[Rfam]
RNA sequence: GGGCUGAUAGCUCAGUUUGGGAGAGCGUCUGGCUUUUAACCAGACGGUCGGGGGUUCAAGUCCCUCUCAGCCCG
Numbered sequence: 001g002g003g004c005u006g007a008u009a010g011c012u013c014a015g016u017u018u019g020g021g022a023g024a025g026c027g028u029c030u031g032g033c034u035u036u037u038a039a040c041c042a043g044a045c046g047g048u049c050g051g052g053g054g055u056u057c058a059a060g061u062c063c064c065u066c067u068c069a070g071c072c073c074g
Stems, first nucleotide, its partner, number of pairs: 001073007010026004028044005050066005
Description:
The record is a 74-nucleotide sequence from Halolamina pelagica, which matches "tRNA" in Rfam. A search with the family's covariance model found it, with a score of 70 bits. From the family's description: Transfer RNA (tRNA) molecules are approximately 80 nucleotides in length. Rfam links the family to the GO term triplet codon-amino acid adaptor activity. By type it is a transfer RNA. The family's consensus secondary structure is taken from published work.